[Rfam]
RNA sequence: GCAUGGAUGAAUUCUGCACUAGCUUUCCUCAGUAGCUGAUGCAGUCAGACACCAUGCCAGAGCAAAUUCCUUUUUCCCACCGUGCCUGGUGUGCCUUUUUAUGGGGAUGGGCACGCCCUUGGAAGGGGAUUGUUCAG
Numbered sequence: 001g002c003a004u005g006g007a008u009g010a011a012u013u014c015u016g017c018a019c020u021a022g023c024u025u026u027c028c029u030c031a032g033u034a035g036c037u038g039a040u041g042c043a044g045u046c047a048g049a050c051a052c053c054a055u056g057c058c059a060g061a062g063c064a065a066a067u068u069c070c071u072u073u074u075u076c077c078c079a080c081c082g083u084g085c086c087u088g089g090u091g092u093g094c095c096u097u098u099u100u101a102u103g104g105g106g107a108u109g110g111g112c113a114c115g116c117c118c119u120u121g122g123a124a125g126g127g128g129a130u131u132g133u134u135c136a137g
Base pairs, nucleotide, nucleotide: 001057002056003055004054005053006052014044015043016042017041018040070132073128074127075126076125088117089116090115091114092113093112094111095110096109
The family of this 137-nucleotide RNA from Bombycilla garrulus is "Small nucleolar RNA SNORA15". ACA15 is a member of the H/ACA class of snoRNA that guide the sites of modification of uridines to pseudouridines. The family has 22 seed sequences and 974 matches in Rfam 15.1. Lineage of the source: Eukaryota > Dinosauria > Saurischia > Australaves > Bombycilla. Its family is annotated with nucleolus and RNA processing in the Gene Ontology. Rfam classes the family as an H/ACA-box small nucleolar RNA. The literature on the family includes a 2001 paper in EMBO J by Huttenhofer et al., "RNomics: an experimental approach that identifies 201 candidates for novel, small, non-messenger RNAs in mouse".